[Rfam]
RNA sequence: GUAUAGCUGAAUACUAUUUUCUUAUAUCAGUAUUUUACACAGCCAGACACCAUGCAAAAGUAGUCUUCCCUUUAAAAUGAUUUAUGGUAUGCUGAGUUUUUCCACAGCAUAUCAUUAUUGAAGGUGAAAACAAAU
Numbered sequence: 001g002u003a004u005a006g007c008u009g010a011a012u013a014c015u016a017u018u019u020u021c022u023u024a025u026a027u028c029a030g031u032a033u034u035u036u037a038c039a040c041a042g043c044c045a046g047a048c049a050c051c052a053u054g055c056a057a058a059a060g061u062a063g064u065c066u067u068c069c070c071u072u073u074a075a076a077a078u079g080a081u082u083u084a085u086g087g088u089a090u091g092c093u094g095a096g097u098u099u100u101u102c103c104a105c106a107g108c109a110u111a112u113c114a115u116u117a118u119u120g121a122a123g124g125u126g127a128a129a130a131c132a133a134a135u
Stems, first nucleotide, its partner, number of pairs: 001055004006050001014042002017039001019037001066128003069124007082117001084115011